Shown here is a 145-nucleotide RNA from Leucobacter triazinivorans, a member of the family "FMN riboswitch aptamer (RFN element)". The family's consensus secondary structure is taken from published work. A search with the family's covariance model found it, with a score of 81 bits. NCBI's taxonomy places the organism under Bacteria, Bacillati, Actinomycetes, Micrococcales, Leucobacter. Gene Ontology term of the family: FMN binding.

RNA sequence: GACAUGUUCCGGGGUCGGUGAGAAUCCGAACCGGCGGUACAGCCCGCGAACCUCGCACCUGCGAGGCCGAACCGGUGGAACUCCGGUGCCGACAGUGAUGGCCGUGACGCGAGUCGCGGUCGAGUCUGGAUGAGAGGAACACGGA
Number, nucleotide and partner (000 for none) at each position: 001g000002a000003c143004a000005u141006g140007u139008u138009c137010c136011g000012g000013g000014g000015u000016c028017g027018g026019u000020g000021a000022g000023a000024a000025u000026c018027c017028g016029a000030a000031c000032c091033g090034g047035c046036g045037g044038u000039a000040c000041a000042g089043c088044c037045c036046g035047c034048g000049a000050a000051c066052c065053u000054c000055g000056c000057a000058c000059c000060u000061g000062c000063g000064a000065g052066g051067c000068c000069g000070a000071a087072c086073c085074g084075g083076u000077g000078g000079a000080a000081c000082u000083c075084c074085g073086g072087u071088g043089c042090c033091g032092a000093c128094a127095g126096u000097g000098a000099u000100g000101g000102c000103c000104g000105u000106g000107a000108c000109g000110c000111g000112a000113g000114u000115c000116g000117c000118g000119g000120u000121c000122g000123a000124g000125u000126c095127u094128g093129g000130a000131u000132g000133a000134g000135a000136g010137g009138a008139a007140c006141a005142c000143g003144g000145a000